[Rfam]
RNA sequence: GGGGGCGUAAAUGGUUUCGACGGGGGUAUAGAAGGAAGAUAAGCGAGUCGUUGCCGCAAAACAACGUAAAAAGUUGCAACAAAAUAUAAACGCAAAAGAAAAUAAUAAUUUAGCAUUCGCAGCGUAAGCUGCUCGCUUGUUCCGCUUAGCCGGCCUGUAGGCUAAAACGGGGCAUCAUUUAAAUCAGGGAACUGCUUAAGGGGGCUUCGACCUUAGGUGGAAUAAUCGAAGAUAGCUGAUACUAUAGCCUGACGAUAGGCGAUAGUAAAGGCGAAACAAAAAUUAUCGUCUGCACUCGGAGAAAGUCUUGUGGAAAUAUUUUCGGACGUGGGUUCGACUCCCACCGCCUCCAUCA
Numbered sequence: 001g002g003g004g005g006c007g008u009a010a011a012u013g014g015u016u017u018c019g020a021c022g023g024g025g026g027u028a029u030a031g032a033a034g035g036a037a038g039a040u041a042a043g044c045g046a047g048u049c050g051u052u053g054c055c056g057c058a059a060a061a062c063a064a065c066g067u068a069a070a071a072a073g074u075u076g077c078a079a080c081a082a083a084a085u086a087u088a089a090a091c092g093c094a095a096a097a098g099a100a101a102a103u104a105a106u107a108a109u110u111u112a113g114c115a116u117u118c119g120c121a122g123c124g125u126a127a128g129c130u131g132c133u134c135g136c137u138u139g140u141u142c143c144g145c146u147u148a149g150c151c152g153g154c155c156u157g158u159a160g161g162c163u164a165a166a167a168c169g170g171g172g173c174a175u176c177a178u179u180u181a182a183a184u185c186a187g188g189g190a191a192c193u194g195c196u197u198a199a200g201g202g203g204g205c206u207u208c209g210a211c212c213u214u215a216g217g218u219g220g221a222a223u224a225a226u227c228g229a230a231g232a233u234a235g236c237u238g239a240u241a242c243u244a245u246a247g248c249c250u251g252a253c254g255a256u257a258g259g260c261g262a263u264a265g266u267a268a269a270g271g272c273g274a275a276a277c278a279a280a281a282a283u284u285a286u287c288g289u290c291u292g293c294a295c296u297c298g299g300a301g302a303a304a305g306u307c308u309u310g311u312g313g314a315a316a317u318a319u320u321u322u323c324g325g326a327c328g329u330g331g332g333u334u335c336g337a338c339u340c341c342c343a344c345c346g347c348c349u350c351c352a353u354c355a
Stems, first nucleotide, its partner, number of pairs: 001351007021324009034311001036309005044298005049066005056077004116135001119132005138174006146165006154188004192220009203233001205231004235272003240267005247260003251290004255284001328344005
The family of this 355-nucleotide RNA sequence from Sedimentibacter saalensis is "transfer-messenger RNA". The family's RNA type in Rfam is non-coding RNA gene. Taxonomically the source falls in Sedimentibacter (Bacteria, Bacillati, Bacillota, Tissierellia). The match comes from Rfam's covariance-model search (198 bits). Gene Ontology term of the family: RNA catabolic process. The family is grouped with related families in Rfam's "tRNA clan".